Shown here is an 86-nucleotide RNA sequence from Pantherophis guttatus, a member of the family "Small nucleolar RNA SNORD103/SNORD85". The base pairs follow the family's consensus structure. NCBI's taxonomy places the organism under Eukaryota, Opisthokonta, Craniata, Sauria, Pantherophis. Its family is annotated with nucleolus and RNA processing in the Gene Ontology. The family has 41 seed sequences and 1,349 matches in Rfam 15.1. The match comes from Rfam's covariance-model search (71 bits).

RNA sequence: UCUGGCAGUGAUGACACUCUUGCCCUCACUGAGAACAUUGUUCAGUAAUGAGAAUCUUGUUAUGGACUCAGAGAAGCUGAGCUGGA
Numbered sequence: 001u002c003u004g005g006c007a008g009u010g011a012u013g014a015c016a017c018u019c020u021u022g023c024c025c026u027c028a029c030u031g032a033g034a035a036c037a038u039u040g041u042u043c044a045g046u047a048a049u050g051a052g053a054a055u056c057u058u059g060u061u062a063u064g065g066a067c068u069c070a071g072a073g074a075a076g077c078u079g080a081g082c083u084g085g086a
Stems, first nucleotide, its partner, number of pairs: 001086006